[Rfam]
RNA: Small nucleolar RNA SNORA8
Organism: Carlito syrichta
Nucleotides: 139
Stems, first nucleotide, its partner, number of pairs: 002061006014055002017052001018047006024040005064128007071120001073118002081107004
Number, partner (000 for none) and nucleotide at each position: 001000c002061g003060c004059a005058c006057u007056g008000c009000a010000c011000g012000g013000u014055a015054u016000c017052u018047g019046c020045a021044c022043u023042c024040a025039g026038c027037a028036g029000u030000u031000a032000a033000u034000u035000c036028c037027u038026g039025c040024u041000a042023g043022g044021g045020u046019g047018u048000u049000c050000a051000a052017a053000a054015g055014u056007c057006a058005g059004u060003g061002c062000c063000a064128u065127a066126g067125a068124a069123a070122u071120u072000c073118a074117g075000u076000a077000u078000c079000u080000g081107g082106c083105a084104u085000c086000a087000u088000u089000g090000g091000u092000u093000u094000u095000c096000u097000u098000g099000g100000c101000c102000u103000u104084g105083u106082g107081c108000a109000u110000g111000u112000u113000a114000a115000a116000c117074c118073u119000a120071g121000u122070a123069u124068u125067u126066c127065u128064a129000u130000u131000g132000a133000u134000a135000c136000a137000c138000u139000a